About this RNA:
MIR403 microRNA precursor family: a 99-nucleotide RNA sequence from Raphanus sativus. Lineage of the source: Eukaryota > Streptophyta > Tracheophyta > rosids > Raphanus. On this family, see Mica et al., BMC Genomics 2009: "High throughput approaches reveal splicing of primary microRNA transcripts and tissue specific expression of mature microRNAs in Vitis vinifera".
RNA sequence: UCAUAUUACAUGUUUUGUGCGUGAAUCUAAUUCAUAUGCUCAUGUAAUAAUCCUAUCUUGUUGUUGGAUUAGAUUCACGCACAAACUCGUAAUCUGUCU
Numbered sequence: 001u002c003a004u005a006u007u008a009c010a011u012g013u014u015u016u017g018u019g020c021g022u023g024a025a026u027c028u029a030a031u032u033c034a035u036a037u038g039c040u041c042a043u044g045u046a047a048u049a050a051u052c053c054u055a056u057c058u059u060g061u062u063g064u065u066g067g068a069u070u071a072g073a074u075u076c077a078c079g080c081a082c083a084a085a086c087u088c089g090u091a092a093u094c095u096g097u098c099u
Base pairs, nucleotide, nucleotide: 002096003095005093006092007091012086013085015084016083017082018081019080020079021078022077023076024075025074026073027072029070030069031068033066034065